[Rfam]
RNA sequence: GAAAGCAGGCGAGGUGGUUGCAAUUGAAUCGUUCGCGAUUCAAUUGAGGAAAGUCCGGGCUCCCCGAUGGCCAGGCUUGCUGGGUAACGCCCAGUGCGGGUGACCGUGAGGAGAGUGCCACAGAAACACACCGCCGAUGGCCGGUUCGCCGGCACAGGCAAGGGUGCAAAGGUGCGGUAAGAGCGCACCAGCAGCAUCGAGAGGUGCUGGCUCGGUAAACCCCGGCUGGGAGCAAGGCCAAGGAACGAUGGCUGGCCAUCUGCCCCGUUCCGCUUUAUGCGCCGCUCGAGGCCGUCGGCAACGGCGGUCCCAGAUAGAUAACCACCCACCCUCUGCAGACCAACCUCUGUGGUGGUGUGAACAGAACCCGGCUUAUGUCCUGCUUUCACCC
Numbered sequence: 001g002a003a004a005g006c007a008g009g010c011g012a013g014g015u016g017g018u019u020g021c022a023a024u025u026g027a028a029u030c031g032u033u034c035g036c037g038a039u040u041c042a043a044u045u046g047a048g049g050a051a052a053g054u055c056c057g058g059g060c061u062c063c064c065c066g067a068u069g070g071c072c073a074g075g076c077u078u079g080c081u082g083g084g085u086a087a088c089g090c091c092c093a094g095u096g097c098g099g100g101u102g103a104c105c106g107u108g109a110g111g112a113g114a115g116u117g118c119c120a121c122a123g124a125a126a127c128a129c130a131c132c133g134c135c136g137a138u139g140g141c142c143g144g145u146u147c148g149c150c151g152g153c154a155c156a157g158g159c160a161a162g163g164g165u166g167c168a169a170a171g172g173u174g175c176g177g178u179a180a181g182a183g184c185g186c187a188c189c190a191g192c193a194g195c196a197u198c199g200a201g202a203g204g205u206g207c208u209g210g211c212u213c214g215g216u217a218a219a220c221c222c223c224g225g226c227u228g229g230g231a232g233c234a235a236g237g238c239c240a241a242g243g244a245a246c247g248a249u250g251g252c253u254g255g256c257c258a259u260c261u262g263c264c265c266c267g268u269u270c271c272g273c274u275u276u277a278u279g280c281g282c283c284g285c286u287c288g289a290g291g292c293c294g295u296c297g298g299c300a301a302c303g304g305c306g307g308u309c310c311c312a313g314a315u316a317g318a319u320a321a322c323c324a325c326c327c328a329c330c331c332u333c334u335g336c337a338g339a340c341c342a343a344c345c346u347c348u349g350u351g352g353u354g355g356u357g358u359g360a361a362c363a364g365a366a367c368c369c370g371g372c373u374u375a376u377g378u379c380c381u382g383c384u385u386u387c388a389c390c391c
Stems, first nucleotide, its partner, number of pairs: 001387009011376001013326007021046009051374003055371005060232004069259001074227003078224002080094005095109001096107004110222002115220002117216003131163002133159003140153005171189006191211001192209007236283003239279001242271006250264003254260001290309008
Overview:
Rfam assigns this 391-nucleotide sequence from Synechococcus sp. CC9902 to the family "Bacterial RNase P class A". The family's RNA type in Rfam is ribozyme. The source organism's lineage runs through Bacteria, Bacillati, Cyanobacteriota, Synechococcales and Synechococcus.